Source information
The family of this 95-nucleotide sequence from Bacillus sp. DNRA2 is "pan motif". The match comes from Rfam's covariance-model search (70 bits). Lineage of the source: Bacteria > Bacillati > Bacillota > Caryophanales > Bacillus. Pairs were carried over by alignment from the consensus structure, which is taken from published work.
[Rfam]
RNA sequence: UGGGCAGUAUCGAAAGAACUGCACCUAUUAAAAAUAAUAUAUUAAAUUAAUAAUGGAUAUCUGCCUAGAUCCAUAAUACGGACCAGGACAGAGGG
Numbered sequence: 001u002g003g004g005c006a007g008u009a010u011c012g013a014a015a016g017a018a019c020u021g022c023a024c025c026u027a028u029u030a031a032a033a034a035u036a037a038u039a040u041a042u043u044a045a046a047u048u049a050a051u052a053a054u055g056g057a058u059a060u061c062u063g064c065c066u067a068g069a070u071c072c073a074u075a076a077u078a079c080g081g082a083c084c085a086g087g088a089c090a091g092a093g094g095g
Stems, first nucleotide, its partner, number of pairs: 002025002004022005010017002061091003064087003068083001070082003